[Rfam]
Rfam assigns this 478-nucleotide part of an RNA from Bifidobacterium tsurumiense to the family "Bacterial large subunit ribosomal RNA". It scores 2583 bits against the family's covariance model.
RNA sequence: GAGAGACGGGUGGGAAUCCCGUCCGCUGGAUGACCAAGGGUUCCGGGGCCACGUUCGUCGUCCCCGGGUGAGUCGGGUCCUAAGGCGAGGCCGACAGGCGUAGUCGAAUGGAUGAACGGGUUGAUAUUCCCGUACCGGCAUGAGGCCGACCGGGCCGACGCGGGGAUGCUAACCUCCGCGCCUUCCUUCCUCCUUCCUUCGGGUUGGUGGGGGGCUGGCGUGUUGGGAUCCUCCCUGCAGGUAGGCGAGCGCAGGAGUGACGCAGAUGGGUAGCCGGCCGCGGAGGUGGUUUUCCGUGGCCAAGCGCGCAGCCCGUCCCCCAGGCAAAUCCGGGGGGCGUGGGGGUGAGGCGUUAUGGGCGUCCCCGUUGGGGGGCGUUCCGGUGAUCCCGGCUGCCGAGAAAAGCUUCGGCGUGAGGCUUGGUGCCGCCCGUACCCCAAACCGACACUGGUGGUCUGGUAGAGUAUACCGAAGCGAU
Numbered sequence: 001g002a003g004a005g006a007c008g009g010g011u012g013g014g015a016a017u018c019c020c021g022u023c024c025g026c027u028g029g030a031u032g033a034c035c036a037a038g039g040g041u042u043c044c045g046g047g048g049c050c051a052c053g054u055u056c057g058u059c060g061u062c063c064c065c066g067g068g069u070g071a072g073u074c075g076g077g078u079c080c081u082a083a084g085g086c087g088a089g090g091c092c093g094a095c096a097g098g099c100g101u102a103g104u105c106g107a108a109u110g111g112a113u114g115a116a117c118g119g120g121u122u123g124a125u126a127u128u129c130c131c132g133u134a135c136c137g138g139c140a141u142g143a144g145g146c147c148g149a150c151c152g153g154g155c156c157g158a159c160g161c162g163g164g165g166a167u168g169c170u171a172a173c174c175u176c177c178g179c180g181c182c183u184u185c186c187u188u189c190c191u192c193c194u195u196c197c198u199u200c201g202g203g204u205u206g207g208u209g210g211g212g213g214g215c216u217g218g219c220g221u222g223u224u225g226g227g228a229u230c231c232u233c234c235c236u237g238c239a240g241g242u243a244g245g246c247g248a249g250c251g252c253a254g255g256a257g258u259g260a261c262g263c264a265g266a267u268g269g270g271u272a273g274c275c276g277g278c279c280g281c282g283g284a285g286g287u288g289g290u291u292u293u294c295c296g297u298g299g300c301c302a303a304g305c306g307c308g309c310a311g312c313c314c315g316u317c318c319c320c321c322a323g324g325c326a327a328a329u330c331c332g333g334g335g336g337g338c339g340u341g342g343g344g345g346u347g348a349g350g351c352g353u354u355a356u357g358g359g360c361g362u363c364c365c366c367g368u369u370g371g372g373g374g375g376c377g378u379u380c381c382g383g384u385g386a387u388c389c390c391g392g393c394u395g396c397c398g399a400g401a402a403a404a405g406c407u408u409c410g411g412c413g414u415g416a417g418g419c420u421u422g423g424u425g426c427c428g429c430c431c432g433u434a435c436c437c438c439a440a441a442c443c444g445a446c447a448c449u450g451g452u453g454g455u456c457u458g459g460u461a462g463a464g465u466a467u468a469c470c471g472a473a474g475c476g477a478u
Stems, first nucleotide, its partner, number of pairs: 005023006024476004032456004038436002043067006052060002074432004079111002084105003088101001090099003116133005136428006143421004249414002254409005262396004268390003273384005278299006300358002304353004311346003315338007323331002360377007442451002458470004
Dot-bracket structure: ....((((((.......))))))((((....((((..((...((((((...((.....)).))))))......((((.((...(((.(.(((....))).).)))....))....(((((........)))))..((((((.((((......................................................................................................((...(((((...((((..(((..(((((((((((..........))))))((..((((...(((.(((((((.((.....))))))))).....)))...))))...)).(((((((....)))))))..)))))...)))..))))........)))))...))...)))).))))))))))..)).....((......)).)))).((((.....))))..))))..